The record is a 138-nucleotide sequence from Eptatretus burgeri, which matches "U11 spliceosomal RNA" in Rfam.
The base pairs follow the family's consensus structure, which is taken from published work.
The organism belongs to Eptatretus, within Eukaryota.
It is annotated as a spliceosomal small nuclear RNA.
It scores 91 bits against the family's covariance model.
The family has 72 seed sequences and 2,595 matches in Rfam 15.1.
RNA sequence: AAAAAGGGCAUUUGCUGUGAGUAGCACGGAUUGUUUGCUUCGGCAGGCGGUUCGCGGAAUCGCAAUCAAAAGAUUCCGAAUGCAGAAUUUGUGAAAUCGGCGGUUGCUGGUGAUCGUUGGUUGAGUCCCGGUGCUGCC
Numbered sequence: 001a002a003a004a005a006g007g008g009c010a011u012u013u014g015c016u017g018u019g020a021g022u023a024g025c026a027c028g029g030a031u032u033g034u035u036u037g038c039u040u041c042g043g044c045a046g047g048c049g050g051u052u053c054g055c056g057g058a059a060u061c062g063c064a065a066u067c068a069a070a071a072g073a074u075u076c077c078g079a080a081u082g083c084a085g086a087a088u089u090u091g092u093g094a095a096a097u098c099g100g101c102g103g104u105u106g107c108u109g110g111u112g113a114u115c116g117u118u119g120g121u122u123g124a125g126u127c128c129c130g131g132u133g134c135u136g137c138c
Stems, first nucleotide, its partner, number of pairs: 008083005013026005027054012055078007101136004106132005112127003